RNA sequence: AGGAUAAUCUAUAUUACCCUCCGAUUGCUUAGGAAGACCGCCCUUACUCAUGCUAUAGGCGGUUU
Numbered sequence: 001a002g003g004a005u006a007a008u009c010u011a012u013a014u015u016a017c018c019c020u021c022c023g024a025u026u027g028c029u030u031a032g033g034a035a036g037a038c039c040g041c042c043c044u045u046a047c048u049c050a051u052g053c054u055a056u057a058g059g060c061g062g063u064u065u
Stems, first nucleotide, its partner, number of pairs: 003009002035065008
This 65-nucleotide sequence from Trichocoleus sp. FACHB-832 belongs to the Rfam family "Nitrogen stress-induced RNA 4". Rfam describes the family as follows. Former name SyR12, is a cyanobacterial non-coding RNA which plays role in the regulation of Glutamine synthetase (GS), a key enzyme in biological nitrogen assimilation. NsiR4 interacts with the 5'UTR of the mRNA of the GS inactivating factor IF7 (gifA mRNA) and reduces its expression. NsiR4 expression is under positive control of the nitrogen control transcription factor (NtcA). The literature on the family includes a 2015 paper in Proc Natl Acad Sci U S A by Klahn et al., "The sRNA NsiR4 is involved in nitrogen assimilation control in cyanobacteria by targeting glutamine synthetase inactivating factor IF7".